[Rfam]
RNA sequence: CUGGAGGAUGAUGAGCUGCACAUGUGGGACCACGGUGCUGUGUACUGUGGGAUCCAACAGAGCUAGGCUGGUGACAAGACAAAAGUGCACAGGGGCCAGCUGACUCCAU
Numbered sequence: 001c002u003g004g005a006g007g008a009u010g011a012u013g014a015g016c017u018g019c020a021c022a023u024g025u026g027g028g029a030c031c032a033c034g035g036u037g038c039u040g041u042g043u044a045c046u047g048u049g050g051g052a053u054c055c056a057a058c059a060g061a062g063c064u065a066g067g068c069u070g071g072u073g074a075c076a077a078g079a080c081a082a083a084a085g086u087g088c089a090c091a092g093g094g095g096c097c098a099g100c101u102g103a104c105u106c107c108a109u
Base pairs, nucleotide, nucleotide: 006106007105023059024058025056026055027054028053030051031050034046035045036044037043038042
Dot-bracket structure: .....((...............((((((.((..(((((...)))))...)).)))).)).............................................))...
Overview
Shown here is a 109-nucleotide RNA sequence from Leptobrachium leishanense, a member of the family "Small nucleolar RNA SNORD67". A search with the family's covariance model found it, with a score of 47 bits. Rfam 15.1 lists 781 matches to the family in 618 species. Gene Ontology terms of the family: nucleolus and RNA processing. About the family: snoRNA HBII-166 belongs to the C/D family of snoRNAs.